A member of the RNA family "mir-4524 microRNA precursor family" from Homo sapiens, 69 nucleotides long.
RNA sequence: GAACGAUAGCAGCAUGAACCUGUCUCACUGCAGAAUUAUUUUGAGACAGGCUUAUGCUGCUAUCCUUCA
Numbered sequence: 001g002a003a004c005g006a007u008a009g010c011a012g013c014a015u016g017a018a019c020c021u022g023u024c025u026c027a028c029u030g031c032a033g034a035a036u037u038a039u040u041u042u043g044a045g046a047c048a049g050g051c052u053u054a055u056g057c058u059g060c061u062a063u064c065c066u067u068c069a
Stems, first nucleotide, its partner, number of pairs: 001068003005064013019050009

The organism belongs to Homo, within Eukaryota. Pairs were carried over by alignment from the consensus structure, which was predicted with RNAalifold.